[Rfam]
RNA sequence: GCGAUGAGCUAAUUGUGUAAGACGACAAACACUCCUUCAGUGGAAAUGCAGGGAUGUGGCCCGCAGUUUGUCGCCUCAAUAUUCGAAAAAAAAACGGAUACCCCAGGGUGUCCGUUUUU
Numbered sequence: 001g002c003g004a005u006g007a008g009c010u011a012a013u014u015g016u017g018u019a020a021g022a023c024g025a026c027a028a029a030c031a032c033u034c035c036u037u038c039a040g041u042g043g044a045a046a047u048g049c050a051g052g053g054a055u056g057u058g059g060c061c062c063g064c065a066g067u068u069u070g071u072c073g074c075c076u077c078a079a080u081a082u083u084c085g086a087a088a089a090a091a092a093a094a095c096g097g098a099u100a101c102c103c104c105a106g107g108g109u110g111u112c113c114g115u116u117u118u119u
Stems, first nucleotide, its partner, number of pairs: 013079003017075001023073008033042001047065002051061002090119013
RNA: BsrF